[Rfam]
RNA: c-di-GMP-I riboswitch aptamer
Organism: Niveibacterium umoris
RNA sequence: AAACAUCGAGGGCAAACCCGUCGAAAGACGGGGACGCAAAGCCUCCGGCCUACAGCGCGCAAGCGCCACGGUAGCGGGGUUGCCGGC
Number, nucleotide and partner (000 for none) at each position: 001a000002a000003a000004c000005a000006u000007c000008g000009a000010g000011g000012g037013c036014a000015a000016a000017c032018c031019c030020g029021u028022c027023g000024a000025a000026a000027g022028a021029c020030g019031g018032g017033g000034a000035c000036g013037c012038a000039a000040a081041g080042c079043c078044u000045c077046c076047g075048g072049c071050c070051u000052a000053c000054a000055g066056c065057g064058c063059g000060c000061a000062a000063g058064c057065g056066c055067c000068a000069c000070g050071g049072u048073a000074g000075c047076g046077g045078g043079g042080u041081u040082g000083c000084c000085g000086g000087c000